[Rfam]
RNA sequence: CGGAGCCUGACUCCGAGUCACCCCAGGACGGGGGCGGGGGACCCACCACCGGCGCGCACGCGCGCCUCGGGGUGAAGCCGCCCCUGCCCCCUUCCCGGGCACGCGGCCGGGCACACCGAUUCGCCCGAACCCGACAGCUCACCUCGCAGGCGGUGAUCGGAGGAUCA
Numbered sequence: 001c002g003g004a005g006c007c008u009g010a011c012u013c014c015g016a017g018u019c020a021c022c023c024c025a026g027g028a029c030g031g032g033g034g035c036g037g038g039g040g041a042c043c044c045a046c047c048a049c050c051g052g053c054g055c056g057c058a059c060g061c062g063c064g065c066c067u068c069g070g071g072g073u074g075a076a077g078c079c080g081c082c083c084c085u086g087c088c089c090c091c092u093u094c095c096c097g098g099g100c101a102c103g104c105g106g107c108c109g110g111g112c113a114c115a116c117c118g119a120u121u122c123g124c125c126c127g128a129a130c131c132c133g134a135c136a137g138c139u140c141a142c143c144u145c146g147c148a149g150g151c152g153g154u155g156a157u158c159g160g161a162g163g164a165u166c167a
Stems, first nucleotide, its partner, number of pairs: 005151003011033005034147006044069001070132003078106004109126004
The record is a 167-nucleotide RNA from Blastococcus sp. TF02-09, which matches "c-di-AMP riboswitch aptamer (ydaO/yuaA leader)" in Rfam. A search with the family's covariance model found it, with a score of 46 bits.